[Rfam]
RNA sequence: AGCGGAGGAGCAGCAGGGUGAAACUGACACAGUUCUGGUGAGUUUCACUUUGCUGCUCCUCCUGA
Numbered sequence: 001a002g003c004g005g006a007g008g009a010g011c012a013g014c015a016g017g018g019u020g021a022a023a024c025u026g027a028c029a030c031a032g033u034u035c036u037g038g039u040g041a042g043u044u045u046c047a048c049u050u051u052g053c054u055g056c057u058c059c060u061c062c063u064g065a
Stems, first nucleotide, its partner, number of pairs: 004062022027039002030037002
Source information
A member of the RNA family "mir-761 microRNA precursor family" from Pan troglodytes, 65 nucleotides long. The source organism's lineage runs through Eukaryota, Gnathostomata, Euteleostomi, Tetrapoda and Pan. Its family is annotated with miRNA-mediated post-transcriptional gene silencing and RISC complex in the Gene Ontology. It is one of the family's seed sequences. On this family, see Zhou et al., Genomics 2009: "In silico detection and characteristics of novel microRNA genes in the Equus caballus genome using an integrated ab initio and comparative genomic approach".